Shown here is a 131-nucleotide RNA from Mariprofundus ferrooxydans, a member of the family "SAM riboswitch aptamer (S box leader)". NCBI's taxonomy places the organism under Bacteria, Pseudomonadota, Candidatius Mariprofundia, Mariprofundus, Mariprofundus ferrooxydans. The match comes from Rfam's covariance-model search (67 bits).
RNA sequence: GCUUUAUCAAGAGCGGUGGAGGGUGCAGGCCCUGUGAUACCGCGGCAACCGGCCAGAGACUGAAAAACAGUACUCUGGAACAUGGUGCCAAUGCCUGCCUGAGAGGUUUUACCUCGAGGGAGCGAUAAAUG
Numbered sequence: 001g002c003u004u005u006a007u008c009a010a011g012a013g014c015g016g017u018g019g020a021g022g023g024u025g026c027a028g029g030c031c032c033u034g035u036g037a038u039a040c041c042g043c044g045g046c047a048a049c050c051g052g053c054c055a056g057a058g059a060c061u062g063a064a065a066a067a068c069a070g071u072a073c074u075c076u077g078g079a080a081c082a083u084g085g086u087g088c089c090a091a092u093g094c095c096u097g098c099c100u101g102a103g104a105g106g107u108u109u110u111a112c113c114u115c116g117a118g119g120g121a122g123c124g125a126u127a128a129a130u131g
Base pairs, nucleotide, nucleotide: 003129004128005127006126007125008124013043014042015041016040017039021032022031023030026097027096028095029094044089045088046087047086049085050084051081054078093123098120099119100118103115104114105113106112